[Rfam]
RNA: mir-150 microRNA precursor family
Organism: Xenopus laevis
RNA sequence: UCCACUCUUUCUCUCUCCCAACCCUUGUACCAGAGUGAUAAUGGGAACUCUGGUACAGAGGAUGGCUGAAAGGAAGCAGUGG
Dot-bracket structure: .........(((.((.((....(..(((((((..................)))))))).....))..)).))).........